SAM riboswitch aptamer (S box leader): a 106-nucleotide RNA from Christiangramia salexigens.
Nucleotides: 106
Base pairs, nucleotide, nucleotide: 003104004103005102006101007100008099013043014042015041016040017039021032022031023030026077027076028075029074044069045068046067047066049065050064051061052060053059054058073098078095079094080093081092082091083090
Number, partner (000 for none) and nucleotide at each position: 001000c002000u003104g004103u005102u006101a007100u008099c009000a010000a011000g012000a013043a014042a015041g016040g017039u018000u019000g020000a021032g022031g023030g024000a025000u026077u027076a028075g029074a030023c031022c032021c033000a034000g035000u036000g037000a038000a039017a040016c041015c042014u043013u044069a045068g046067c047066a048000a049065c050064c051061c052060u053059c054058c055000u056000u057000c058054g059053g060052a061051g062000a063000a064050g065049g066047u067046g068045c069044u070000a071000c072000a073098u074029u075028c076027u077026a078095c079094u080093a081092a082091g083090c084000g085000a086000a087000c088000u089000a090083g091082c092081u093080u094079g095078g096000a097000u098073a099008g100007a101006u102005a103004a104003c105000u106000a
Lineage of the source: Bacteria > Pseudomonadati > Bacteroidota > Flavobacteriia > Christiangramia.